[Rfam]
RNA sequence: CUCUAGCCCUGAUGGUCGCGGCAUCCUUUUUAUUUUUUCUUUAAAAAUAAAAAGAUACAGCAGACAGCAGGAAUUAGC
Numbered sequence: 001c002u003c004u005a006g007c008c009c010u011g012a013u014g015g016u017c018g019c020g021g022c023a024u025c026c027u028u029u030u031u032a033u034u035u036u037u038u039c040u041u042u043a044a045a046a047a048u049a050a051a052a053a054g055a056u057a058c059a060g061c062a063g064a065c066a067g068c069a070g071g072a073a074u075u076a077g078c
Base pairs, nucleotide, nucleotide: 009070010069011068013066014065018061019060023056024055025054029051030050031049032048033047034046035045036044
The record is a 78-nucleotide sequence from Flavobacterium sp. KMS, which matches "Flavo-1 RNA" in Rfam.
It is annotated as a small RNA.